[Rfam]
RNA sequence: AGAACUCACAUUAAUCAUCCUUGGGACCAUGGGAUAACCAAAAAUCCUAUAAAACCAAGUUAAGACACCCUAGAAUGGUUCUAGCAUGAUUACUAACUUAUGGCUUUGGUACUAGUUGAUUGUUCCCAAGC
Numbered sequence: 001a002g003a004a005c006u007c008a009c010a011u012u013a014a015u016c017a018u019c020c021u022u023g024g025g026a027c028c029a030u031g032g033g034a035u036a037a038c039c040a041a042a043a044a045u046c047c048u049a050u051a052a053a054a055c056c057a058a059g060u061u062a063a064g065a066c067a068c069c070c071u072a073g074a075a076u077g078g079u080u081c082u083a084g085c086a087u088g089a090u091u092a093c094u095a096a097c098u099u100a101u102g103g104c105u106u107u108g109g110u111a112c113u114a115g116u117u118g119a120u121u122g123u124u125c126c127c128a129a130g131c
Stems, first nucleotide, its partner, number of pairs: 010120006022108004027103007048086001053080002056077002060073003

Rfam assigns this 131-nucleotide RNA from Vitis rotundifolia to the family "MIR845_2 microRNA precursor family". NCBI's taxonomy places the organism under Eukaryota, Mesangiospermae, Vitaceae, Viteae, Vitis. On this family, see Jaillon et al., Nature 2007: "The grapevine genome sequence suggests ancestral hexaploidization in major angiosperm phyla". The base pairs follow the family's consensus structure, which was predicted with WAR.